The record is a 65-nucleotide RNA from Schmidtea mediterranea, which matches "bantam microRNA precursor family" in Rfam. The family's consensus secondary structure was predicted with RNAalifold. NCBI's taxonomy places the organism under Eukaryota, Lophotrochozoa, Platyhelminthes, Continenticola, Schmidtea. Its family is annotated with miRNA-mediated post-transcriptional gene silencing and RISC complex in the Gene Ontology. The family is grouped with related families in Rfam's "mir-81 clan".
RNA sequence: AGUUUAAAGGCUUUCAUUAUGAUUUUAAAAUGUUAUUUUGAGAUCAUUAUGAAAGCUUUUUACUG
Numbered sequence: 001a002g003u004u005u006a007a008a009g010g011c012u013u014u015c016a017u018u019a020u021g022a023u024u025u026u027a028a029a030a031u032g033u034u035a036u037u038u039u040g041a042g043a044u045c046a047u048u049a050u051g052a053a054a055g056c057u058u059u060u061u062a063c064u065g
Base pairs, nucleotide, nucleotide: 002064004062006060008058009057010056011055012054013053014052015051016050017049020046021045022044023043024042025041